Rfam assigns this 101-nucleotide sequence from Desulfosporosinus sp. Tol-M to the family "PyrR binding site". The family's RNA type in Rfam is cis-regulatory element. Pairs were carried over by alignment from the consensus structure, which is taken from published work. Lineage of the source: Bacteria > Bacillota > Clostridia > Eubacteriales > Desulfosporosinus. This family represents the PyrR binding site and terminator structure. Gene Ontology terms of the family: pyrimidine nucleobase transport and pyrimidine nucleobase biosynthetic process. A search with the family's covariance model found it, with a score of 55 bits.
[Rfam]
RNA sequence: UUACCCUUUAAAUACUAUUCAGAGAGAUAGUCAAGGGGCGAGUAGUAUAGGUUUAUGCCUAUAUAAAAAUUCUCUCCCUUGCGGAAGAGGAUUUUUUUAUU
Numbered sequence: 001u002u003a004c005c006c007u008u009u010a011a012a013u014a015c016u017a018u019u020c021a022g023a024g025a026g027a028u029a030g031u032c033a034a035g036g037g038g039c040g041a042g043u044a045g046u047a048u049a050g051g052u053u054u055a056u057g058c059c060u061a062u063a064u065a066a067a068a069a070u071u072c073u074c075u076c077c078c079u080u081g082c083g084g085a086a087g088a089g090g091a092u093u094u095u096u097u098u099a100u101u
Base pairs, nucleotide, nucleotide: 004037005036006035007034008033014031015030016029017028018027019026045064046063047062048061050059051058052057065096066095067094068093069092070091071090072089073088074087075086077084078083